[Rfam]
RNA sequence: CGGCGUUCUCAGGGCGGGGCGAAAUUCCCCACCGGCGGUAAGGGGCGCAUGCCUCAAGCCCGCGAGCGCAUCGGGGUUGCAAAGCUUCGAUGGUCAAGCAGAUCCGGUGCGAUUCCGGAGCCGACGGUUACAGUCCGGAUGGAAGAGAACGCCG
Numbered sequence: 001c002g003g004c005g006u007u008c009u010c011a012g013g014g015c016g017g018g019g020c021g022a023a024a025u026u027c028c029c030c031a032c033c034g035g036c037g038g039u040a041a042g043g044g045g046c047g048c049a050u051g052c053c054u055c056a057a058g059c060c061c062g063c064g065a066g067c068g069c070a071u072c073g074g075g076g077u078u079g080c081a082a083a084g085c086u087u088c089g090a091u092g093g094u095c096a097a098g099c100a101g102a103u104c105c106g107g108u109g110c111g112a113u114u115c116c117g118g119a120g121c122c123g124a125c126g127g128u129u130a131c132a133g134u135c136c137g138g139a140u141g142g143a144a145g146a147g148a149a150c151g152c153c154g
Stems, first nucleotide, its partner, number of pairs: 003152008017029003031134002033123002035063004058121002066099002103119005125137003
A member of the RNA family "FMN riboswitch aptamer (RFN element)" from Roseovarius indicus, 154 nucleotides long. The organism belongs to Roseovarius, within Bacteria. About the family: The RFN element is a highly conserved domain that is found frequently in the 5'-untranslated regions of prokaryotic mRNAs that encode for flavin mononucleotide (FMN) biosynthesis and transport proteins. The base pairs follow the family's consensus structure, which is taken from published work.